Rfam assigns this 41-nucleotide RNA to the family "Prion pseudoknot".

RNA sequence: CCAAGAUGUGGAGGCUGGGGUCAGCCCUUGGUGGAGGUUGC
Numbered sequence: 001c002c003a004a005g006a007u008g009u010g011g012a013g014g015c016u017g018g019g020g021u022c023a024g025c026c027c028u029u030g031g032u033g034g035a036g037g038u039u040g041c
Stems, first nucleotide, its partner, number of pairs: 001031005
By type it is a cis-regulatory element.
Rfam describes the family as follows. This family represents a predicted pseudoknot structure found in prion protein mRNA. It has been suggested that the family has a possible effect in prion protein translation.
The literature on the family includes a 2001 paper in Nucleic Acids Res by Barrette et al., "Pseudoknots in prion protein mRNAs confirmed by comparative sequence analysis and pattern searching".
The sequence is in the family's curated seed alignment.